[Rfam]
RNA sequence: GCCUGCCCGACACUCUUUCCCUGUUGCACUCCUGUGGGCCACUGGAAAGCAGUGCAAUGAUGAAAGGGCAUUGGUCAGGCC
Numbered sequence: 001g002c003c004u005g006c007c008c009g010a011c012a013c014u015c016u017u018u019c020c021c022u023g024u025u026g027c028a029c030u031c032c033u034g035u036g037g038g039c040c041a042c043u044g045g046a047a048a049g050c051a052g053u054g055c056a057a058u059g060a061u062g063a064a065a066g067g068g069c070a071u072u073g074g075u076c077a078g079g080c081c
Stems, first nucleotide, its partner, number of pairs: 001081001003079001005076001007074004013068007022059009
RNA: mir-130 microRNA precursor family